This 62-nucleotide RNA from Undibacterium sp. KW1 belongs to the Rfam family "Betaproteobacteria toxic small RNA". The family has 51 seed sequences and 951 matches in Rfam 15.1.

Nucleotides: 062
Base pairs, nucleotide, nucleotide: 008030009029010028011027012026014025015024016023035055036054037053038052039051040050041049042048
Number, partner (000 for none) and nucleotide at each position: 001000u002000g003000u004000c005000u006000c007000c008030u009029c010028c011027a012026a013000c014025a015024c016023c017000u018000c019000c020000u021000a022000a023016g024015g025014u026012u027011u028010g029009g030008a031000u032000u033000u034000a035055a036054a037053c038052c039051c040050g041049c042048a043000a044000a045000g046000u047000u048042u049041g050040c051039g052038g053037g054036u055035u056000u057000u058000u059000u060000u061000u062000u
The base pairs follow the family's consensus structure, which was predicted with WAR. From the family's description: Overexpression in amino aid rich medium attenuates growth, suggesting role in repressing amino acid intake and metabolism. The organism belongs to Undibacterium, within Bacteria.